The record is a 92-nucleotide sequence from Rhinopomastus cyanomelas, which matches "Small nucleolar RNA SNORD70" in Rfam.
Rfam links the family to the GO terms RNA processing and nucleolus.
The literature on the family includes a 2001 paper in EMBO J by Huttenhofer et al., "RNomics: an experimental approach that identifies 201 candidates for novel, small, non-messenger RNAs in mouse".
snoRNA HBII-234 belongs to the C/D family of snoRNAs. It is the human orthologue of the mouse MBII-234 and is predicted to guide 2'O-ribose methylation of the small 18S rRNA on position A512.
Pairs were carried over by alignment from the consensus structure.
[Rfam]
RNA sequence: CAGACUGUUGUCAAUGAUGAAACAUAACUAGUUAAGAUGAAAUUAAUGAUUUCAUUCGGUUCCUUCGUCACUACCACUGAGACAACAGAUGG
Numbered sequence: 001c002a003g004a005c006u007g008u009u010g011u012c013a014a015u016g017a018u019g020a021a022a023c024a025u026a027a028c029u030a031g032u033u034a035a036g037a038u039g040a041a042a043u044u045a046a047u048g049a050u051u052u053c054a055u056u057c058g059g060u061u062c063c064u065u066c067g068u069c070a071c072u073a074c075c076a077c078u079g080a081g082a083c084a085a086c087a088g089a090u091g092g
Base pairs, nucleotide, nucleotide: 001092003090005088006087007086008085009084010083011082012081
The source organism's lineage runs through Eukaryota, Archosauria, Neognathae, Bucerotiformes and Rhinopomastus.